[Rfam]
RNA sequence: GUCUGGCCACUGCCCUUUUUAUGUUGUACUACUAGUGAACAUGUGCAAAAAGCAGUGCAAUGUUAAAAGGGCAUUGGCCAGUGAU
Numbered sequence: 001g002u003c004u005g006g007c008c009a010c011u012g013c014c015c016u017u018u019u020u021a022u023g024u025u026g027u028a029c030u031a032c033u034a035g036u037g038a039a040c041a042u043g044u045g046c047a048a049a050a051a052g053c054a055g056u057g058c059a060a061u062g063u064u065a066a067a068a069g070g071g072c073a074u075u076g077g078c079c080a081g082u083g084a085u
Stems, first nucleotide, its partner, number of pairs: 001085003005079005012072008022062009
The record is an 85-nucleotide RNA from Sphenodon punctatus, which matches "mir-130 microRNA precursor family" in Rfam. The literature on the family includes a 2003 paper in Dev Cell by Houbaviy et al., "Embryonic stem cell-specific MicroRNAs". It scores 56 bits against the family's covariance model. NCBI's taxonomy places the organism under Eukaryota, Chordata, Craniata, Euteleostomi, Sphenodon. Gene Ontology terms of the family: miRNA-mediated post-transcriptional gene silencing and RISC complex.